[Rfam]
RNA sequence: GCAGCCGGCCGGACGAGGUCGAGGUGAGCGUGACCGUGCGCCGGUCGACGGCGCUGCUAGGCGGCACUGACGCAGCACAAGAAGACGUGGUCGACGGGGUGAUGUGGUUCCGACGACCGGCGGC
Numbered sequence: 001g002c003a004g005c006c007g008g009c010c011g012g013a014c015g016a017g018g019u020c021g022a023g024g025u026g027a028g029c030g031u032g033a034c035c036g037u038g039c040g041c042c043g044g045u046c047g048a049c050g051g052c053g054c055u056g057c058u059a060g061g062c063g064g065c066a067c068u069g070a071c072g073c074a075g076c077a078c079a080a081g082a083a084g085a086c087g088u089g090g091u092c093g094a095c096g097g098g099g100u101g102a103u104g105u106g107g108u109u110c111c112g113a114c115g116a117c118c119g120g121c122g123g124c
Stems, first nucleotide, its partner, number of pairs: 004121005

Small nucleolar RNA Z206: a 124-nucleotide RNA sequence from Oryza punctata.
The source organism's lineage runs through Eukaryota, Euphyllophyta, Poales, Oryzinae and Oryza.
It scores 111 bits against the family's covariance model.
Rfam links the family to the GO terms RNA processing and nucleolus.
The pairing is the family consensus, mapped onto this sequence.
For this family Rfam cites "The high diversity of snoRNAs in plants: identification and comparative study of 120 snoRNA genes from Oryza sativa" (Chen et al., Nucleic Acids Res, 2003).